[Rfam]
RNA sequence: UUUCUUACCUCGGGGGGCUCAUGUGAGCUGAGAUGCGAAAGCGGACCCGUUGAACCUGAACCGGUUAGGACCGGCGGAGGGAAGGUUGGAUAUUCAUCC
Numbered sequence: 001u002u003u004c005u006u007a008c009c010u011c012g013g014g015g016g017g018c019u020c021a022u023g024u025g026a027g028c029u030g031a032g033a034u035g036c037g038a039a040a041g042c043g044g045a046c047c048c049g050u051u052g053a054a055c056c057u058g059a060a061c062c063g064g065u066u067a068g069g070a071c072c073g074g075c076g077g078a079g080g081g082a083a084g085g086u087u088g089g090a091u092a093u094u095c096a097u098c099c
Stems, first nucleotide, its partner, number of pairs: 007086004011049004017028004035042002055080003061074004
Dot-bracket structure: ......((((((((..((((....))))......((....))...)))).....(((...((((......))))...)))..)))).............